[Rfam]
RNA: GcvB RNA
RNA sequence: ACUUCCUGAGCCGGAACGAAAAGUUGUUUAAGCUGGCGCGAGAAAUCGCGAGGUGAUGAAGGACUUUUGGCUUGUGGUCGUGAUGUUGUGUUUGCAAUUGGUCUGACGUUUUUCAGAUCGGGUAGCAAAGCUACCAUUUAAUUCCUGUAGAUUUAUCCUGUCUGUCCAUAGUGAUAUUAAUAGCACCGCAAAUUGCGGUGCUUUUUUUU
Numbered sequence: 001a002c003u004u005c006c007u008g009a010g011c012c013g014g015a016a017c018g019a020a021a022a023g024u025u026g027u028u029u030a031a032g033c034u035g036g037c038g039c040g041a042g043a044a045a046u047c048g049c050g051a052g053g054u055g056a057u058g059a060a061g062g063a064c065u066u067u068u069g070g071c072u073u074g075u076g077g078u079c080g081u082g083a084u085g086u087u088g089u090g091u092u093u094g095c096a097a098u099u100g101g102u103c104u105g106a107c108g109u110u111u112u113u114c115a116g117a118u119c120g121g122g123u124a125g126c127a128a129a130g131c132u133a134c135c136a137u138u139u140a141a142u143u144c145c146u147g148u149a150g151a152u153u154u155a156u157c158c159u160g161u162c163u164g165u166c167c168a169u170a171g172u173g174a175u176a177u178u179a180a181u182a183g184c185a186c187c188g189c190a191a192a193u194u195g196c197g198g199u200g201c202u203u204u205u206u207u208u209u
Stems, first nucleotide, its partner, number of pairs: 009072004015068002021066005028060002099120008121135006151181003182202008